[Rfam]
RNA sequence: ACAGUCCGAAAACCGCGAUGCUCGCCCCCUACAGGACGCUUUGACGCGUCCGUCCUCGCGAGCGGGUUAAGGUCUGAGCAUUCCAGUCCCUCUCGAUAGACUCUAGCCGGGUCCCGUCCCAACGGACGGCGCGACGUACCAGCAACCAGGCUAGCUUGCCGCUCGACACAGGUGAAGACUGUUGCGCGCGCUGGGUAUCCACCGCCCGCAAAUACACGAGCCUGUCGAGCCCGGGCACCGACGCAUUCAAGAUCCCGGAAGCGCAAGGGUCCCCCGGUGACUACAGAAGCCUUGAAAACGUCGCAGGGAUCGGGGCGACGUGGCUGCGUUGCCUUCGUGCCGCACCUCCCAUCUCUCGUGCCUCUUAGGGCGCCGCCAGGCCACACAGUCCCGGUCAUGACCGCUAGACUGUCUGGAUGAGGGUUGCUACCUUGGUCCCAAUCAUGAUGUUGAGCCGUGUCGACAGGACUCACGGAUUCUAUCCCUGAGUGGUGUCGGUAGCAUGGUCUCCCCUAGUGUGAAGGGCCAGGAGUACGCGCCCGUAGGUCGGUGAGCAGGCUCUCGAAGCUCCGCUGCUGCGUCUCUCCUUCAGUUCACUUCGCGGUCUCCGAAGGCUUCGCCAAGGAGAACUCGAUUCAGACUACUCUUGGACUGU
Numbered sequence: 001a002c003a004g005u006c007c008g009a010a011a012a013c014c015g016c017g018a019u020g021c022u023c024g025c026c027c028c029c030u031a032c033a034g035g036a037c038g039c040u041u042u043g044a045c046g047c048g049u050c051c052g053u054c055c056u057c058g059c060g061a062g063c064g065g066g067u068u069a070a071g072g073u074c075u076g077a078g079c080a081u082u083c084c085a086g087u088c089c090c091u092c093u094c095g096a097u098a099g100a101c102u103c104u105a106g107c108c109g110g111g112u113c114c115c116g117u118c119c120c121a122a123c124g125g126a127c128g129g130c131g132c133g134a135c136g137u138a139c140c141a142g143c144a145a146c147c148a149g150g151c152u153a154g155c156u157u158g159c160c161g162c163u164c165g166a167c168a169c170a171g172g173u174g175a176a177g178a179c180u181g182u183u184g185c186g187c188g189c190g191c192u193g194g195g196u197a198u199c200c201a202c203c204g205c206c207c208g209c210a211a212a213u214a215c216a217c218g219a220g221c222c223u224g225u226c227g228a229g230c231c232c233g234g235g236c237a238c239c240g241a242c243g244c245a246u247u248c249a250a251g252a253u254c255c256c257g258g259a260a261g262c263g264c265a266a267g268g269g270u271c272c273c274c275c276g277g278u279g280a281c282u283a284c285a286g287a288a289g290c291c292u293u294g295a296a297a298a299c300g301u302c303g304c305a306g307g308g309a310u311c312g313g314g315g316c317g318a319c320g321u322g323g324c325u326g327c328g329u330u331g332c333c334u335u336c337g338u339g340c341c342g343c344a345c346c347u348c349c350c351a352u353c354u355c356u357c358g359u360g361c362c363u364c365u366u367a368g369g370g371c372g373c374c375g376c377c378a379g380g381c382c383a384c385a386c387a388g389u390c391c392c393g394g395u396c397a398u399g400a401c402c403g404c405u406a407g408a409c410u411g412u413c414u415g416g417a418u419g420a421g422g423g424u425u426g427c428u429a430c431c432u433u434g435g436u437c438c439c440a441a442u443c444a445u446g447a448u449g450u451u452g453a454g455c456c457g458u459g460u461c462g463a464c465a466g467g468a469c470u471c472a473c474g475g476a477u478u479c480u481a482u483c484c485c486u487g488a489g490u491g492g493u494g495u496c497g498g499u500a501g502c503a504u505g506g507u508c509u510c511c512c513c514u515a516g517u518g519u520g521a522a523g524g525g526c527c528a529g530g531a532g533u534a535c536g537c538g539c540c541c542g543u544a545g546g547u548c549g550g551u552g553a554g555c556a557g558g559c560u561c562u563c564g565a566a567g568c569u570c571c572g573c574u575g576c577u578g579c580g581u582c583u584c585u586c587c588u589u590c591a592g593u594u595c596a597c598u599u600c601g602c603g604g605u606c607u608c609c610g611a612a613g614g615c616u617u618c619g620c621c622a623a624g625g626a627g628a629a630c631u632c633g634a635u636u637c638a639g640a641c642u643a644c645u646c647u648u649g650g651a652c653u654g655u
Stems, first nucleotide, its partner, number of pairs: 001655004007649003012605007020063005034051006074639005082309003099113005114129006131304007149291003606627004

A member of the RNA family "Nuclear RNase P" from Phanerochaete sordida, 655 nucleotides long.
The family has 116 seed sequences and 3,848 matches in Rfam 15.1.
For this family Rfam cites "Ribonuclease P: unity and diversity in a tRNA processing ribozyme" (Frank and Pace, Annu Rev Biochem, 1998).
The organism belongs to Phanerochaete, within Eukaryota.
The base pairs follow the family's consensus structure, which is taken from published work.